The family of this 89-nucleotide RNA from Homo sapiens is "mir-1183 microRNA precursor family".
RNA sequence: AUUAUUCAAAUGCUCGGAGACACAGAACAUUAGAGAAGACAGGAGUUCACUGUAGGUGAUGGUGAGAGUGGGCAUGGAGCAGGAGUGCC
Numbered sequence: 001a002u003u004a005u006u007c008a009a010a011u012g013c014u015c016g017g018a019g020a021c022a023c024a025g026a027a028c029a030u031u032a033g034a035g036a037a038g039a040c041a042g043g044a045g046u047u048c049a050c051u052g053u054a055g056g057u058g059a060u061g062g063u064g065a066g067a068g069u070g071g072g073c074a075u076g077g078a079g080c081a082g083g084a085g086u087g088c089c
Stems, first nucleotide, its partner, number of pairs: 003087005011081005017075001019073001021070003028064005035057001039053004

NCBI's taxonomy places the organism under Eukaryota, Opisthokonta, Amniota, Haplorrhini, Homo. It is one of the family's seed sequences. For this family Rfam cites "Computational identification of novel microRNA homologs in the chimpanzee genome" (Baev et al., Comput Biol Chem, 2009).